[Rfam]
RNA sequence: AGUCUUGACGCGGGGUGCUUCGCUAACAGCGAUGCUGAGAUCAUACCCGUAUAACCUGAACCAGAUAAUGCUGGCGUAGGGAUGUCUCUAGCUUUAGUC
Numbered sequence: 001a002g003u004c005u006u007g008a009c010g011c012g013g014g015g016u017g018c019u020u021c022g023c024u025a026a027c028a029g030c031g032a033u034g035c036u037g038a039g040a041u042c043a044u045a046c047c048c049g050u051a052u053a054a055c056c057u058g059a060a061c062c063a064g065a066u067a068a069u070g071c072u073g074g075c076g077u078a079g080g081g082a083u084g085u086c087u088c089u090a091g092c093u094u095u096a097g098u099c
Stems, first nucleotide, its partner, number of pairs: 007086004011049004016043001017035002020032004055080004061074004
Annotation:
TPP riboswitch aptamer (THI element): a 99-nucleotide RNA sequence from Alcaligenaceae bacterium 429. Rfam describes the family as follows. Vitamin B(1) in its active form thiamin pyrophosphate (TPP) is an essential coenzyme that is synthesised by coupling of pyrimidine and thiazole moieties in bacteria. Taxonomically the source falls in Alcaligenaceae (Bacteria, Pseudomonadota, Betaproteobacteria, Burkholderiales). Rfam 15.1 lists 16,130 matches to the family in 8,693 species.